[Rfam]
RNA: Small nucleolar RNA Z122
Organism: Carnegiea gigantea
RNA sequence: UCGACGAGAUGAUGACAGACAUGAUAAUCAGAGGCACUUGAGCUUUGCUGAUUUUAUUUUGCACGUCCGUCUGAUCGCUAA
Numbered sequence: 001u002c003g004a005c006g007a008g009a010u011g012a013u014g015a016c017a018g019a020c021a022u023g024a025u026a027a028u029c030a031g032a033g034g035c036a037c038u039u040g041a042g043c044u045u046u047g048c049u050g051a052u053u054u055u056a057u058u059u060u061g062c063a064c065g066u067c068c069g070u071c072u073g074a075u076c077g078c079u080a081a
Stems, first nucleotide, its partner, number of pairs: 001081001003079001005077003